The record is a 149-nucleotide RNA from Xylella fastidiosa, which matches "radC RNA" in Rfam. NCBI's taxonomy places the organism under Bacteria, Pseudomonadota, Lysobacterales, Lysobacteraceae, Xylella fastidiosa. The family's consensus secondary structure is taken from published work. The family has 148 seed sequences and 500 matches in Rfam 15.1.
[Rfam]
RNA sequence: UCCUGCCCCCCAUGUUCGUCGGCGUUGCCGACACAUGCCCAGGCAGCCGAGACCUUCGAGGCUGCAAGCACGGGAAGCCGUGCUGGUCGUUUCUUCCUAUGGACGCACCGCGUCCAUCCACCCACAAGGGACCUCUCCCUUGCGGGCGG
Numbered sequence: 001u002c003c004u005g006c007c008c009c010c011c012a013u014g015u016u017c018g019u020c021g022g023c024g025u026u027g028c029c030g031a032c033a034c035a036u037g038c039c040c041a042g043g044c045a046g047c048c049g050a051g052a053c054c055u056u057c058g059a060g061g062c063u064g065c066a067a068g069c070a071c072g073g074g075a076a077g078c079c080g081u082g083c084u085g086g087u088c089g090u091u092u093c094u095u096c097c098u099a100u101g102g103a104c105g106c107a108c109c110g111c112g113u114c115c116a117u118c119c120a121c122c123c124a125c126a127a128g129g130g131a132c133c134u135c136u137c138c139c140u141u142g143c144g145g146g147c148g149g
Stems, first nucleotide, its partner, number of pairs: 011037005018032006043065006051088004067084007117149002125142007